[Rfam]
RNA sequence: ACGUGCUAAGCGGGGAGGUAGCGGUGCCCUGUACUCGCAAUCCGCUAUAGCGGGGCCGAAUUCCCACUCGAGGUGGGACGACUUUAUGGUCUGACUUAAGGGAUUGGUGUUGACGCCCGGGUCCUGCGCAACAGGAACCCACGAAUCCUGUCAGGUCCGGAAGGAAGCAGCAGUAAGUGGUUAUUCUUGUGUGCCGCAGGGAAGCCUAGGCCGAGCCAUGAACUUAUGUAGCGCAUAGGGUCGUUUCAUCGACAGUGGGUGCACGU
Numbered sequence: 001a002c003g004u005g006c007u008a009a010g011c012g013g014g015g016a017g018g019u020a021g022c023g024g025u026g027c028c029c030u031g032u033a034c035u036c037g038c039a040a041u042c043c044g045c046u047a048u049a050g051c052g053g054g055g056c057c058g059a060a061u062u063c064c065c066a067c068u069c070g071a072g073g074u075g076g077g078a079c080g081a082c083u084u085u086a087u088g089g090u091c092u093g094a095c096u097u098a099a100g101g102g103a104u105u106g107g108u109g110u111u112g113a114c115g116c117c118c119g120g121g122u123c124c125u126g127c128g129c130a131a132c133a134g135g136a137a138c139c140c141a142c143g144a145a146u147c148c149u150g151u152c153a154g155g156u157c158c159g160g161a162a163g164g165a166a167g168c169a170g171c172a173g174u175a176a177g178u179g180g181u182u183a184u185u186c187u188u189g190u191g192u193g194c195c196g197c198a199g200g201g202a203a204g205c206c207u208a209g210g211c212c213g214a215g216c217c218a219u220g221a222a223c224u225u226a227u228g229u230a231g232c233g234c235a236u237a238g239g240g241u242c243g244u245u246u247c248a249u250c251g252a253c254a255g256u257g258g259g260u261g262c263a264c265g266u
Base pairs, nucleotide, nucleotide: 001266002265003264004263005262006261010056011055012030013029014028015027017025019023034054035053036052037051038050063259064258065257066256067255068254072250073249074248075247076246079243080242081241082240083239084238085237086236087235088234092230093229097226098225099224100223104220106217107216108215115211116210117209119207120206121205122204123200124199125198126197127196128195129191130190132189133188134187135186136185137182139180140179141178142177148173149172150171151170156165157164158163
Dot-bracket structure: ((((((...((((((.(.(...).).))))...(((((...........)))))))......((((((...(((((..((((((((((...((...((((...(.(((......(((.((((((((((((.((((((.((((.....((((....(((....)))....))))...)))).)..)))))))...))))))...)))).)))...)))..)..))))..))...))))))))))..)))))...)))))).))))))
Shown here is a 266-nucleotide sequence from Oceanobacillus iheyensis, a member of the family "Bacterial large signal recognition particle RNA". On this family, see Rosenblad et al., Nucleic Acids Res 2003: "SRPDB: Signal Recognition Particle Database". The base pairs follow the family's consensus structure, which is taken from published work. Rfam classes the family as a non-coding RNA gene. NCBI's taxonomy places the organism under Bacteria, Bacillati, Bacilli, Bacillaceae, Oceanobacillus iheyensis.